Rfam assigns this 155-nucleotide RNA from Arenibacter nanhaiticus to the family "SAM riboswitch aptamer (S box leader)". Lineage of the source: Bacteria > Bacteroidota > Flavobacteriia > Flavobacteriales > Arenibacter. It scores 66 bits against the family's covariance model. The SAM riboswitch is found upstream of a number of genes which code for proteins involved in methionine or cysteine biosynthesis in Gram-positive bacteria.
RNA sequence: ACGUUAUCAAGAAAGGCGGAGGGAUUAGACCCAAUGAAGCCUUAGCAACCCUUUUUUCCACGCCGAUAGCGCUCGGAAGGAAUGAAGAAGGUGCUACUUUCUAAUCCUGUCAGGAUGCCCAAAAAGGGUCUUCGUGGCACAGGAAUAGAUAACAA
Numbered sequence: 001a002c003g004u005u006a007u008c009a010a011g012a013a014a015g016g017c018g019g020a021g022g023g024a025u026u027a028g029a030c031c032c033a034a035u036g037a038a039g040c041c042u043u044a045g046c047a048a049c050c051c052u053u054u055u056u057u058c059c060a061c062g063c064c065g066a067u068a069g070c071g072c073u074c075g076g077a078a079g080g081a082a083u084g085a086a087g088a089a090g091g092u093g094c095u096a097c098u099u100u101c102u103a104a105u106c107c108u109g110u111c112a113g114g115a116u117g118c119c120c121a122a123a124a125a126g127g128g129u130c131u132u133c134g135u136g137g138c139a140c141a142g143g144a145a146u147a148g149a150u151a152a153c154a155a
Stems, first nucleotide, its partner, number of pairs: 003153006013043005021032003026104001028102001029100001044095004049091002051087004099147001105144006